Rfam assigns this 379-nucleotide RNA from Heterodermia speciosa to the family "Nuclear RNase P". A reference for the family is Frank and Pace (1998), "Ribonuclease P: unity and diversity in a tRNA processing ribozyme", Annu Rev Biochem.
RNA sequence: ACCAUCGCUGCGUUUCUUUGCUCACAUACAGACUCGUACCUCUCGAGGUAUGGUCCGAUCAUGCAAAUGAGAAAUUCGGAGUAAUCUUCAACCACUAUACACAUGCCUCGCUGCUUGCAGUGGCCGCAUGAUGAUCUGCCCGUGAGGGCCUGGCGCGCAAGCGUCUGCAAUUGGCAUCAGAAAAGCAGGACUCCUGGCUUCUUUCGUCUUUCGGGUCGACGAGGUUCAGAAUGUUCCUAUGGAAGGGCCGUUGCGAAGAUCGUGUAUGCUCUUCGGGGUAUGACACUUUAGUGCAAUACGCAGCGUGUCUGAAUCUGUGUUCCCUGUUGUCAUGACAAGGAGCCGGAAACGGACGCAAUUCGAUUCCGAUUACUCUGGU
Numbered sequence: 001a002c003c004a005u006c007g008c009u010g011c012g013u014u015u016c017u018u019u020g021c022u023c024a025c026a027u028a029c030a031g032a033c034u035c036g037u038a039c040c041u042c043u044c045g046a047g048g049u050a051u052g053g054u055c056c057g058a059u060c061a062u063g064c065a066a067a068u069g070a071g072a073a074a075u076u077c078g079g080a081g082u083a084a085u086c087u088u089c090a091a092c093c094a095c096u097a098u099a100c101a102c103a104u105g106c107c108u109c110g111c112u113g114c115u116u117g118c119a120g121u122g123g124c125c126g127c128a129u130g131a132u133g134a135u136c137u138g139c140c141c142g143u144g145a146g147g148g149c150c151u152g153g154c155g156c157g158c159a160a161g162c163g164u165c166u167g168c169a170a171u172u173g174g175c176a177u178c179a180g181a182a183a184a185g186c187a188g189g190a191c192u193c194c195u196g197g198c199u200u201c202u203u204u205c206g207u208c209u210u211u212c213g214g215g216u217c218g219a220c221g222a223g224g225u226u227c228a229g230a231a232u233g234u235u236c237c238u239a240u241g242g243a244a245g246g247g248c249c250g251u252u253g254c255g256a257a258g259a260u261c262g263u264g265u266a267u268g269c270u271c272u273u274c275g276g277g278g279u280a281u282g283a284c285a286c287u288u289u290a291g292u293g294c295a296a297u298a299c300g301c302a303g304c305g306u307g308u309c310u311g312a313a314u315c316u317g318u319g320u321u322c323c324c325u326g327u328u329g330u331c332a333u334g335a336c337a338a339g340g341a342g343c344c345g346g347a348a349a350c351g352g353a354c355g356c357a358a359u360u361c362g363a364u365u366c367c368g369a370u371u372a373c374u375c376u377g378g379u
Stems, first nucleotide, its partner, number of pairs: 002303001005300001017067004031055004077368005086258004138149004152165005167254004173249003187238003305356007
Dot-bracket structure: .[..[...........((((..........((((.................))))........)))).........(((((....((((................................................((((....))))..(((((....))))).((((..(((...........(((..............................................)))........))).)))))))).........................................]..].(((((((......................................))))))).......)))))...........

The match comes from Rfam's covariance-model search (46 bits). The family's RNA type in Rfam is ribozyme. The family's consensus secondary structure is taken from published work.